[Rfam]
RNA sequence: UCUUCAUUUCACGCGCUUUCUCACCUCUCUAACCGGUGAGAGAGCGUGUGAAAUGAAGAGA
Numbered sequence: 001u002c003u004u005c006a007u008u009u010c011a012c013g014c015g016c017u018u019u020c021u022c023a024c025c026u027c028u029c030u031a032a033c034c035g036g037u038g039a040g041a042g043a044g045c046g047u048g049u050g051a052a053a054u055g056a057a058g059a060g061a
Base pairs, nucleotide, nucleotide: 001059002058003057004056005055006054007053010050012048013047014046015045016044017043019041020040021039022038
Dot-bracket structure: (((((((..(.((((((.((((...............)))).)))))).)..)))))))..
mir-8364 microRNA precursor family: a 61-nucleotide RNA sequence from Pristionchus pacificus. A search with the family's covariance model found it, with a score of 77 bits. The base pairs follow the family's consensus structure, which was predicted with RNAalifold. Rfam links the family to the GO terms RISC complex and miRNA-mediated post-transcriptional gene silencing.